RNA sequence: GGGGCCGACCGGAAUUGACAGGAUGGUGGCAGGUAUGUAAGCAUGCAGCGCGUUGUGAGACUAGCGCUUAAAUCUGAACUCUCAAACUAUAAUUGGCGAAAAUAACUACGCCUUAGCUGCCUAAUUUAGAAUUAGCUCAGCUUUUGUCCCGCUGGUAUUCUGUUCUGUUAAACCAGUAACCGGGGCAUCGAUCAACAGAACUGGCUUGGUUAGUGGUGUGGUGACCAGGCGAGAUAAAGCACCUAAGGAAGACGGUACAGGCAAUCUGCCAGCCUUCCCCUUCCCUACAAUUAAAUGGCAGAUAAGCAUGUAGAAAGCAUAAUUUGUUCCGUAUCUGGACGAGGGUUCGAAUCCCUCCGGCUCCACUG
Numbered sequence: 001g002g003g004g005c006c007g008a009c010c011g012g013a014a015u016u017g018a019c020a021g022g023a024u025g026g027u028g029g030c031a032g033g034u035a036u037g038u039a040a041g042c043a044u045g046c047a048g049c050g051c052g053u054u055g056u057g058a059g060a061c062u063a064g065c066g067c068u069u070a071a072a073u074c075u076g077a078a079c080u081c082u083c084a085a086a087c088u089a090u091a092a093u094u095g096g097c098g099a100a101a102a103u104a105a106c107u108a109c110g111c112c113u114u115a116g117c118u119g120c121c122u123a124a125u126u127u128a129g130a131a132u133u134a135g136c137u138c139a140g141c142u143u144u145u146g147u148c149c150c151g152c153u154g155g156u157a158u159u160c161u162g163u164u165c166u167g168u169u170a171a172a173c174c175a176g177u178a179a180c181c182g183g184g185g186c187a188u189c190g191a192u193c194a195a196c197a198g199a200a201c202u203g204g205c206u207u208g209g210u211u212a213g214u215g216g217u218g219u220g221g222u223g224a225c226c227a228g229g230c231g232a233g234a235u236a237a238a239g240c241a242c243c244u245a246a247g248g249a250a251g252a253c254g255g256u257a258c259a260g261g262c263a264a265u266c267u268g269c270c271a272g273c274c275u276u277c278c279c280c281u282u283c284c285c286u287a288c289a290a291u292u293a294a295a296u297g298g299c300a301g302a303u304a305a306g307c308a309u310g311u312a313g314a315a316a317g318c319a320u321a322a323u324u325u326g327u328u329c330c331g332u333a334u335c336u337g338g339a340c341g342a343g344g345g346u347u348c349g350a351a352u353c354c355c356u357c358c359g360g361c362u363c364c365a366c367u368g
Base pairs, nucleotide, nucleotide: 001364002363003362004361005360006359007358019337020336021335022334023332024331025330026329030326031325032324033323034321035320036319037318038317042310043309044308045307046306047068048067049066050065051064054084055083057081058080059079112140113139115137116136117135118134119133145187146186147185148184149183150182152176153175154174155173156172158170162201163200164199165198166197167196168195204230205229206228207227208226209225210224211223212222215244216243247285248284250282251281254278255277260274261273262272265302266301267300269297341357342356343355344354345353
transfer-messenger RNA: a 368-nucleotide sequence from Arcticibacter tournemirensis. Clan: tRNA clan. By type it is a non-coding RNA gene.